[Rfam]
RNA sequence: UGGGUCGGCCGGACGGUCGCGUCGCACGCGGUUCGCCGCAUGCGCCGAGGAACGUCCGGGCUCCACAGGGCAGGGCGGUGGGUAACACCCACCCGGAGUGAUCCGCGAGACAGUGCCACAGAGAGCAGACCGCCGGCGUGAGCCGGUAAGGGUGAAAGGGCGGUGUAAGAGACCACCGGGAUGCUGGUGACAGCAUCCGCACGGCAAACCUCGCCCGGAGCAAGGCCAGACAGGGGAUGAUGACGCGGCCCGCCGAGUCCCCGGGUAGGCCGCUGGAACGGCACGGCAACGUGUCGUCGAGAGAGAUGACCGUCGAAGGGGCGCACGCCCCGGAACAGAACCCGGCGUACAGGCCGGCCCAUUCG
Numbered sequence: 001u002g003g004g005u006c007g008g009c010c011g012g013a014c015g016g017u018c019g020c021g022u023c024g025c026a027c028g029c030g031g032u033u034c035g036c037c038g039c040a041u042g043c044g045c046c047g048a049g050g051a052a053c054g055u056c057c058g059g060g061c062u063c064c065a066c067a068g069g070g071c072a073g074g075g076c077g078g079u080g081g082g083u084a085a086c087a088c089c090c091a092c093c094c095g096g097a098g099u100g101a102u103c104c105g106c107g108a109g110a111c112a113g114u115g116c117c118a119c120a121g122a123g124a125g126c127a128g129a130c131c132g133c134c135g136g137c138g139u140g141a142g143c144c145g146g147u148a149a150g151g152g153u154g155a156a157a158g159g160g161c162g163g164u165g166u167a168a169g170a171g172a173c174c175a176c177c178g179g180g181a182u183g184c185u186g187g188u189g190a191c192a193g194c195a196u197c198c199g200c201a202c203g204g205c206a207a208a209c210c211u212c213g214c215c216c217g218g219a220g221c222a223a224g225g226c227c228a229g230a231c232a233g234g235g236g237a238u239g240a241u242g243a244c245g246c247g248g249c250c251c252g253c254c255g256a257g258u259c260c261c262c263g264g265g266u267a268g269g270c271c272g273c274u275g276g277a278a279c280g281g282c283a284c285g286g287c288a289a290c291g292u293g294u295c296g297u298c299g300a301g302a303g304a305g306a307u308g309a310c311c312g313u314c315g316a317a318g319g320g321g322c323g324c325a326c327g328c329c330c331c332g333g334a335a336c337a338g339a340a341c342c343c344g345g346c347g348u349a350c351a352g353g354c355c356g357g358c359c360c361a362u363u364c365g
Stems, first nucleotide, its partner, number of pairs: 001361010011350001012314007020047002023044004028039003052348003056345005061220004068251004073216005078092005093107001094105004108211002113209002115205003130151002132147006159177002162174003178200001179198008224271004233262006245253002278297008
Record summary: The record is a 365-nucleotide sequence from Microbacterium mangrovi, which matches "Bacterial RNase P class A" in Rfam. Rfam classes the family as a ribozyme. Gene Ontology terms of the family: ribonuclease P activity, tRNA processing and dimeric ribonuclease P complex. It scores 276 bits against the family's covariance model.